[Rfam]
Annotation
The family of this 131-nucleotide sequence from Rotaria sp. Silwood1 is "U4 spliceosomal RNA". U4 small nuclear RNA (U4 snRNA) is a component of the major U2-dependent spliceosome. The source organism's lineage runs through Eukaryota, Bilateria, Eurotatoria, Bdelloidea and Rotaria. The match comes from Rfam's covariance-model search (78 bits). A reference for the family is Zwieb (1997), "The uRNA database", Nucleic Acids Res.
RNA sequence: AUUCUUGCGCAGUGGUAGUACCUUAUCCUAUGAACGUUUUGUGACUGGAGAGGUUAUUGCUAAUUGCAAACUACUAUCAAUGCUUCACAUUGGCUUUAUGUCAAUGUAAUUUUUACUCACUUCUUCGGAAG
Numbered sequence: 001a002u003u004c005u006u007g008c009g010c011a012g013u014g015g016u017a018g019u020a021c022c023u024u025a026u027c028c029u030a031u032g033a034a035c036g037u038u039u040u041g042u043g044a045c046u047g048g049a050g051a052g053g054u055u056a057u058u059g060c061u062a063a064u065u066g067c068a069a070a071c072u073a074c075u076a077u078c079a080a081u082g083c084u085u086c087a088c089a090u091u092g093g094c095u096u097u098a099u100g101u102c103a104a105u106g107u108a109a110u111u112u113u114u115a116c117u118c119a120c121u122u123c124u125u126c127g128g129a130a131g
Base pairs, nucleotide, nucleotide: 020054021053022052023051024050026049027048028047034042035041036040087107088106089105090104091103092102093101094100120131121130122129123128